[Rfam]
RNA sequence: UCCUCCGUGAGAAGGAAUCUGAAGGAAGCCGGAGGCAAAUUCUCGAACUGACGAACAGAAACUAUAUACAAGGCUGAAUUGGGACGGACGAGUCUGCUAAACAUGAUAAAGUCCAAUACUGCCCGAAUCCCAUACAGUAAAUAUAGCAGUUACAUGAGAAGAAGGUUAUCGCU
Numbered sequence: 001u002c003c004u005c006c007g008u009g010a011g012a013a014g015g016a017a018u019c020u021g022a023a024g025g026a027a028g029c030c031g032g033a034g035g036c037a038a039a040u041u042c043u044c045g046a047a048c049u050g051a052c053g054a055a056c057a058g059a060a061a062c063u064a065u066a067u068a069c070a071a072g073g074c075u076g077a078a079u080u081g082g083g084a085c086g087g088a089c090g091a092g093u094c095u096g097c098u099a100a101a102c103a104u105g106a107u108a109a110a111g112u113c114c115a116a117u118a119c120u121g122c123c124c125g126a127a128u129c130c131c132a133u134a135c136a137g138u139a140a141a142u143a144u145a146g147c148a149g150u151u152a153c154a155u156g157a158g159a160a161g162a163a164g165g166u167u168a169u170c171g172c173u
Stems, first nucleotide, its partner, number of pairs: 001016004006011001028173001030171003035166002040160006046151005062146006073138003080132005086114004092107003

Rfam assigns this 173-nucleotide sequence from Terrilactibacillus tamarindi to the family "Group II catalytic intron D1-D4-3".
On this family, see Bonen and Vogel, Trends Genet 2001: "The ins and outs of group II introns".